[Rfam]
Rfam assigns this 83-nucleotide RNA from Salinibacillus xinjiangensis to the family "ZMP/ZTP riboswitch aptamer (pfl RNA motif)".
RNA sequence: UUCAAACGCAGUAACUGACGACGCAAUGGGAUUGACCAUGGGGGAGCUGCGUGGCUAAUAUGCCGGUCGUCUGGGCGGGGACU
Numbered sequence: 001u002u003c004a005a006a007c008g009c010a011g012u013a014a015c016u017g018a019c020g021a022c023g024c025a026a027u028g029g030g031a032u033u034g035a036c037c038a039u040g041g042g043g044g045a046g047c048u049g050c051g052u053g054g055c056u057a058a059u060a061u062g063c064c065g066g067u068c069g070u071c072u073g074g075g076c077g078g079g080g081a082c083u
Base pairs, nucleotide, nucleotide: 006052007051008050009049010048011047012046015043016042017071018070019069020068021067026039027038028037029036061077062076063075064074